[Rfam]
RNA sequence: GUGCCUUAAACUACUGAGUAAGGAAAAUAUACGAGCCCUGGUAACGCUUGGCUUACAUGCACAAAGGCGCGCCUGGCGCGUCUGCUUGGAAUUUUUGUAGGGGCACAGGUCGUCCCGUGGCCCCCUGCUUACUUUUCGCAGGGCCGGCCUGGUGAAGCGAUCUGCCCC
Numbered sequence: 001g002u003g004c005c006u007u008a009a010a011c012u013a014c015u016g017a018g019u020a021a022g023g024a025a026a027a028u029a030u031a032c033g034a035g036c037c038c039u040g041g042u043a044a045c046g047c048u049u050g051g052c053u054u055a056c057a058u059g060c061a062c063a064a065a066g067g068c069g070c071g072c073c074u075g076g077c078g079c080g081u082c083u084g085c086u087u088g089g090a091a092u093u094u095u096u097g098u099a100g101g102g103g104c105a106c107a108g109g110u111c112g113u114c115c116c117g118u119g120g121c122c123c124c125c126u127g128c129u130u131a132c133u134u135u136u137c138g139c140a141g142g143g144c145c146g147g148c149c150u151g152g153u154g155a156a157g158c159g160a161u162c163u164g165c166c167c168c
Stems, first nucleotide, its partner, number of pairs: 004023005033054005040047001055086001059082001100168005107163007116152001119149004124142005
Shown here is a 168-nucleotide RNA from Brassicogethes aeneus, a member of the family "U12 minor spliceosomal RNA".
The source organism's lineage runs through Eukaryota, Altocrustacea, Neoptera, Endopterygota and Brassicogethes.
Rfam classes the family as a spliceosomal small nuclear RNA.
For this family Rfam cites "Pre-mRNA splicing: the discovery of a new spliceosome doubles the challenge" (Tarn and Steitz, Trends Biochem Sci, 1997).
Its Rfam clan is "U2 clan".